[Rfam]
RNA sequence: UCCCGCUGCCCUCCUUGGGCGUUUCCUCCCUAGACUUGGGCCGCACCUCGUGUGCGGCCUUUUUUCUGCGCCGU
Numbered sequence: 001u002c003c004c005g006c007u008g009c010c011c012u013c014c015u016u017g018g019g020c021g022u023u024u025c026c027u028c029c030c031u032a033g034a035c036u037u038g039g040g041c042c043g044c045a046c047c048u049c050g051u052g053u054g055c056g057g058c059c060u061u062u063u064u065u066c067u068g069c070g071c072c073g074u
Base pairs, nucleotide, nucleotide: 008020009019010018011017039059040058041057042056043055044054045053046052